A member of the RNA family "Small nucleolar RNA SNORD94" from Dicentrarchus labrax, 138 nucleotides long. The family's RNA type in Rfam is C/D-box small nucleolar RNA. The source organism's lineage runs through Eukaryota, Chordata, Actinopterygii, Neopterygii and Dicentrarchus.
RNA sequence: UCUGUGAUGAUGAGAAGCGCAGGGGUACGGACCUCAGCCAGUGAUGGGGGCUGAGUGCUGCUGCUGAUGUCUGAUUGGAGGGCGAGUGGUUCACUGACAGACCAACAGCAGCACGAGACAGACGCCACUCUGAACAGA
Numbered sequence: 001u002c003u004g005u006g007a008u009g010a011u012g013a014g015a016a017g018c019g020c021a022g023g024g025g026u027a028c029g030g031a032c033c034u035c036a037g038c039c040a041g042u043g044a045u046g047g048g049g050g051c052u053g054a055g056u057g058c059u060g061c062u063g064c065u066g067a068u069g070u071c072u073g074a075u076u077g078g079a080g081g082g083c084g085a086g087u088g089g090u091u092c093a094c095u096g097a098c099a100g101a102c103c104a105a106c107a108g109c110a111g112c113a114c115g116a117g118a119c120a121g122a123c124g125c126c127a128c129u130c131u132g133a134a135c136a137g138a
Stems, first nucleotide, its partner, number of pairs: 001138005